[Rfam]
RNA sequence: AAUCAGAAGAUAAUCGGGCCACAGACAGCAGGUGCGUAAGCGCAAGUGCAGCAGUGUACGCCUGCCGAGGCUGGAGACGUUAAAGAUAGAUCAGUUCUUUCACGACCUCCGGCUGCUACGGCCGAGAGGUCUUUUUGAUUUAUAA
Numbered sequence: 001a002a003u004c005a006g007a008a009g010a011u012a013a014u015c016g017g018g019c020c021a022c023a024g025a026c027a028g029c030a031g032g033u034g035c036g037u038a039a040g041c042g043c044a045a046g047u048g049c050a051g052c053a054g055u056g057u058a059c060g061c062c063u064g065c066c067g068a069g070g071c072u073g074g075a076g077a078c079g080u081u082a083a084a085g086a087u088a089g090a091u092c093a094g095u096u097c098u099u100u101c102a103c104g105a106c107c108u109c110c111g112g113c114u115g116c117u118a119c120g121g122c123c124g125a126g127a128g129g130u131c132u133u134u135u136u137g138a139u140u141u142a143u144a145a
Stems, first nucleotide, its partner, number of pairs: 028065006034041002105130005110124004
Rfam assigns this 145-nucleotide RNA from Succiniclasticum ruminis to the family "Ribosomal protein L10 leader". By type it is a cis-regulatory leader. The organism belongs to Succiniclasticum ruminis, within Bacteria.